[Rfam]
RNA sequence: ACCCUCUGGUUCCCUUUCCCAUCGGAUCUGAACCCUGGUCUUGGUGGUUGUAAAAGUACCGAAGCUGUGCUCAUAGUGUCUGCUAUAUAGUAUGUGGGCUACUUUCAAACAAGG
Numbered sequence: 001a002c003c004c005u006c007u008g009g010u011u012c013c014c015u016u017u018c019c020c021a022u023c024g025g026a027u028c029u030g031a032a033c034c035c036u037g038g039u040c041u042u043g044g045u046g047g048u049u050g051u052a053a054a055a056g057u058a059c060c061g062a063a064g065c066u067g068u069g070c071u072c073a074u075a076g077u078g079u080c081u082g083c084u085a086u087a088u089a090g091u092a093u094g095u096g097g098g099c100u101a102c103u104u105u106c107a108a109a110c111a112a113g114g
Stems, first nucleotide, its partner, number of pairs: 003056001019047005025040004066101002069099004074092002
The family of this 114-nucleotide sequence from Delphinapterus leucas is "Small nucleolar RNA SNORA61". It scores 76 bits against the family's covariance model. The base pairs follow the family's consensus structure, which was predicted with PFOLD. The source organism's lineage runs through Eukaryota, Opisthokonta, Bilateria, Craniata and Delphinapterus. By type it is an H/ACA-box small nucleolar RNA. ACA61 is a member of the H/ACA class of snoRNA that guide the sites of modification of uridines to pseudouridines.